Background: The family of this 103-nucleotide RNA from Carnobacteriaceae bacterium zg-C25 is "S10-Clostridia ribosomal protein leader". The family's consensus secondary structure is taken from published work. A search with the family's covariance model found it, with a score of 36 bits. NCBI's taxonomy places the organism under Bacteria, Bacillati, Bacillota, Bacilli, Carnobacteriaceae.
[Rfam]
RNA sequence: GGUUAGUGAUGAUACGAGAGGUUGCGACACACCCGGACGCUUUGCCUAGUCAGGUGCGUCGGAAAUUUUCGUGGAGCUAGUCUAAAUGAGAAACAUUUGACGA
Numbered sequence: 001g002g003u004u005a006g007u008g009a010u011g012a013u014a015c016g017a018g019a020g021g022u023u024g025c026g027a028c029a030c031a032c033c034c035g036g037a038c039g040c041u042u043u044g045c046c047u048a049g050u051c052a053g054g055u056g057c058g059u060c061g062g063a064a065a066u067u068u069u070c071g072u073g074g075a076g077c078u079a080g081u082c083u084a085a086a087u088g089a090g091a092a093a094c095a096u097u098u099g100a101c102g103a
Stems, first nucleotide, its partner, number of pairs: 014072003018069004025061004080101003085098002